[Rfam]
RNA sequence: UACUUAUCCAGAAAGACGGAGGGAAAGGCCCUGUGAAGUCUUAGCAACCCCAGAAAUGGUAGGUGCUAAUUCCUGCUUCUGCAAAGAAGAUAGAUAAAAC
Numbered sequence: 001u002a003c004u005u006a007u008c009c010a011g012a013a014a015g016a017c018g019g020a021g022g023g024a025a026a027g028g029c030c031c032u033g034u035g036a037a038g039u040c041u042u043a044g045c046a047a048c049c050c051c052a053g054a055a056a057u058g059g060u061a062g063g064u065g066c067u068a069a070u071u072c073c074u075g076c077u078u079c080u081g082c083a084a085a086g087a088a089g090a091u092a093g094a095u096a097a098a099a100c
Stems, first nucleotide, its partner, number of pairs: 004097005013042005021031003026074003043067004048063002050059003071092001076089005
RNA: SAM riboswitch aptamer (S box leader)